[Rfam]
RNA sequence: GAGAUUGGUGGCUAGGGUUCCGGUGCCGGGUGGCAUGGCUGGUCCGAGAGCUGCCACCGUCAGGCGGCUGCCCGGCGGAUGCACGGCGGGACAAAAGCCCGGGAGAC
Number, nucleotide and partner (000 for none) at each position: 001g000002a000003g000004a000005u000006u000007g055008g054009u053010g052011g051012c050013u000014a000015g045016g044017g000018u000019u000020c042021c041022g039023g036024u035025g034026c033027c032028g000029g000030g000031u000032g027033g026034c025035a024036u023037g000038g000039c022040u000041g021042g020043u000044c016045c015046g000047a000048g000049a000050g012051c011052u010053g009054c008055c007056a000057c000058c000059g080060u079061c078062a000063g076064g000065c074066g073067g000068c000069u000070g000071c000072c000073c066074g065075g000076c063077g000078g061079a060080u059081g000082c102083a000084c105085g000086g000087c000088g100089g099090g098091a000092c000093a000094a000095a000096a000097g000098c090099c089100c088101g000102g082103g000104a000105g084106a000107c000
This 107-nucleotide sequence from Devosia sp. Root685 belongs to the Rfam family "Guanidine-I riboswitch aptamer". Gene Ontology term of the family: regulation of gene expression. This family represents a conserved RNA structure found upstream of the ykkC and yxkD genes in Bacillus subtilis and related genes in other bacteria.